Overview:
A member of the RNA family "Eukaryotic small subunit ribosomal RNA" from Diacronema lutheri, 532 nucleotides of a longer RNA. A search with the family's covariance model found it, with a score of 1783 bits. NCBI's taxonomy places the organism under Eukaryota, Haptophyta, Pavlovophyceae, Pavlovaceae, Diacronema. The family is grouped with related families in Rfam's "SSU clan". The family's consensus secondary structure is taken from published work.

RNA sequence: CAGUUAAAAAGCUCGUAGUCGGAUUUCGGGCUGGUCGUGCGGGUCUGCCGUUGGGUAUGUACUUGCGUCGUCCGGUCAGUAUGGCGUAGGUGCGUCGCCUCGUUGAUUCGUGUGCGUCGUUCUCUGCGCCCGUUUACUUUGAGAAAAUCAGAGUGUUCAAAGCAGGCCUUUGCCAUUGUAUGUGUUAGCAUGGGAUAAUGGAAUAGGACCUUGGUGCUAUUUUGUUGGUUUCGAACGCCGAGGUAAUGAUGAAUAGGGACAGUCAGGGGCACUCGUAUUCCGUAGAGAGAGGUGAAAUUCUUAGACCCACGGAAGACGCACUACUGCGAAAGCAUUUGCCAGGGAUGUUUUCACUGAUCAAGAACGAAAGUUAGGGGAUCGAAGAUGAUCAGAUACCGUCGUAGUCUUAACCAUAAACCAUGCCGACCAGGGAUUGGUGGUUGUCAUCUUUGACAUCAUCAGCACCUUUCGAGAAAUCAGAGUCUUUGGGUUCCGGGGGGAGUAUGGUCGCAAGGCUGAAACUUAAAGGAAU
Numbered sequence: 001c002a003g004u005u006a007a008a009a010a011g012c013u014c015g016u017a018g019u020c021g022g023a024u025u026u027c028g029g030g031c032u033g034g035u036c037g038u039g040c041g042g043g044u045c046u047g048c049c050g051u052u053g054g055g056u057a058u059g060u061a062c063u064u065g066c067g068u069c070g071u072c073c074g075g076u077c078a079g080u081a082u083g084g085c086g087u088a089g090g091u092g093c094g095u096c097g098c099c100u101c102g103u104u105g106a107u108u109c110g111u112g113u114g115c116g117u118c119g120u121u122c123u124c125u126g127c128g129c130c131c132g133u134u135u136a137c138u139u140u141g142a143g144a145a146a147a148u149c150a151g152a153g154u155g156u157u158c159a160a161a162g163c164a165g166g167c168c169u170u171u172g173c174c175a176u177u178g179u180a181u182g183u184g185u186u187a188g189c190a191u192g193g194g195a196u197a198a199u200g201g202a203a204u205a206g207g208a209c210c211u212u213g214g215u216g217c218u219a220u221u222u223u224g225u226u227g228g229u230u231u232c233g234a235a236c237g238c239c240g241a242g243g244u245a246a247u248g249a250u251g252a253a254u255a256g257g258g259a260c261a262g263u264c265a266g267g268g269g270c271a272c273u274c275g276u277a278u279u280c281c282g283u284a285g286a287g288a289g290a291g292g293u294g295a296a297a298u299u300c301u302u303a304g305a306c307c308c309a310c311g312g313a314a315g316a317c318g319c320a321c322u323a324c325u326g327c328g329a330a331a332g333c334a335u336u337u338g339c340c341a342g343g344g345a346u347g348u349u350u351u352c353a354c355u356g357a358u359c360a361a362g363a364a365c366g367a368a369a370g371u372u373a374g375g376g377g378a379u380c381g382a383a384g385a386u387g388a389u390c391a392g393a394u395a396c397c398g399u400c401g402u403a404g405u406c407u408u409a410a411c412c413a414u415a416a417a418c419c420a421u422g423c424c425g426a427c428c429a430g431g432g433a434u435u436g437g438u439g440g441u442u443g444u445c446a447u448c449u450u451u452g453a454c455a456u457c458a459u460c461a462g463c464a465c466c467u468u469u470c471g472a473g474a475a476a477u478c479a480g481a482g483u484c485u486u487u488g489g490g491u492u493c494c495g496g497g498g499g500g501a502g503u504a505u506g507g508u509c510g511c512a513a514g515g516c517u518g519a520a521a522c523u524u525a526a527a528g529g530a531a532u
Base pairs, nucleotide, nucleotide: 001495003493009492011365013363014362018358019357020356256352257351258350259349260347261346263344264343268340269339270338271337274318275317278314279313280312281311282310283309285307289300290299291298326333327332370411371410372409373408374407375406380404384400385399386398387397422491423490424489425484426483427482429467430466431465434462435461436460437459438458439457440456441455443454444453445452471478472477497524498523499522506517507516508515509514